[Rfam]
RNA: SAM-I/IV (S-adenosyl methionine) riboswitch aptamer
RNA sequence: UUUCAGCAUCAAGAGUUGGGUCGACGCCCGACGCCAACCUGCCGAUCCGGGCAAGGUGGCACUCCGCAAGGAGGAUGUGGCCGACCCGGCAAGAAACGGAUCAAGC
Numbered sequence: 001u002u003u004c005a006g007c008a009u010c011a012a013g014a015g016u017u018g019g020g021u022c023g024a025c026g027c028c029c030g031a032c033g034c035c036a037a038c039c040u041g042c043c044g045a046u047c048c049g050g051g052c053a054a055g056g057u058g059g060c061a062c063u064c065c066g067c068a069a070g071g072a073g074g075a076u077g078u079g080g081c082c083g084a085c086c087c088g089g090c091a092a093g094a095a096a097c098g099g100a101u102c103a104a105g106c
Base pairs, nucleotide, nucleotide: 006078007077008076009075010074015032017031018029019028020027021026033060034059035058038056039055040054041052042051043050048099080090081089082088083087